[Rfam]
RNA sequence: GCAUGGGUUUGGAUUGAUGGCAGGCCUGUCCCCCAGGGUCUCGCAUAUGCCCCAGGCCAGAGCACGCUGCAGCCUUGAACCACUGCCCGGCCUCUGCUCAUAGGCUGCAGGAACCGAAGCAGGUUGCACAGUG
Dot-bracket structure: ((.(((((......(.(((..(((((.........)).)))..)))).)))).).))............((((((.....(....((((((((........))))))..))....)....)))))).......
Numbered sequence: 001g002c003a004u005g006g007g008u009u010u011g012g013a014u015u016g017a018u019g020g021c022a023g024g025c026c027u028g029u030c031c032c033c034c035a036g037g038g039u040c041u042c043g044c045a046u047a048u049g050c051c052c053c054a055g056g057c058c059a060g061a062g063c064a065c066g067c068u069g070c071a072g073c074c075u076u077g078a079a080c081c082a083c084u085g086c087c088c089g090g091c092c093u094c095u096g097c098u099c100a101u102a103g104g105c106u107g108c109a110g111g112a113a114c115c116g117a118a119g120c121a122g123g124u125u126g127c128a129c130a131g132u133g
Stems, first nucleotide, its partner, number of pairs: 001057002004054001005052004015047001017046003022041003025037002070126006081116001086111002088107006
This 133-nucleotide RNA from Myotis davidii belongs to the Rfam family "Small nucleolar RNA SNORA42/SNORA80 family".
The base pairs follow the family's consensus structure, which was predicted with RNAalifold.
It scores 109 bits against the family's covariance model.
Its family is annotated with nucleolus and RNA processing in the Gene Ontology.
A reference for the family is Schattner et al. (2006), "A computational screen for mammalian pseudouridylation guide H/ACA RNAs", RNA.
The family's RNA type in Rfam is H/ACA-box small nucleolar RNA.
The family has 21 seed sequences and 1,535 matches in Rfam 15.1.
Rfam's curators write: The members of this family belong to the H/ACA class of snoRNAs that guide the sites of modification of uridines to pseudouridines. Human ACA42 (SNORA42) was cloned from HeLa cells by immunoprecipitation with anti-GAR1 antibody. Its is predicted to guide the pseudouridylation of residues U109 and U572 of 18S rRNA. ACA42 shares the same host gene with ACA26, ACA46, ACA50. This family also includes mammalian snoRNA ACA67 (SNORA80) which was identified by computational screening and its expression in mouse experimentally verified by Northern blot and primer extension analysis. ACA67 is proposed to guide the pseudouridylation of the same 18S rRNA residues as ACA42.